[Rfam]
RNA sequence: CUCGGGUUCGGGAUGAAGUGGUUGACGACCCCGCCGAACACCGCCAGGGUGCGAUUGCCGUCCUGCACCAUCUGGACACCGCGGCUGCGGAAUUCCUU
Numbered sequence: 001c002u003c004g005g006g007u008u009c010g011g012g013a014u015g016a017a018g019u020g021g022u023u024g025a026c027g028a029c030c031c032c033g034c035c036g037a038a039c040a041c042c043g044c045c046a047g048g049g050u051g052c053g054a055u056u057g058c059c060g061u062c063c064u065g066c067a068c069c070a071u072c073u074g075g076a077c078a079c080c081g082c083g084g085c086u087g088c089g090g091a092a093u094u095c096c097u098u
Stems, first nucleotide, its partner, number of pairs: 006039006014033002018029002021026001044053001079090004

The record is a 98-nucleotide sequence from Mycobacterium sinensis, which matches "Mycobacterium sRNA Ms_AS-1" in Rfam.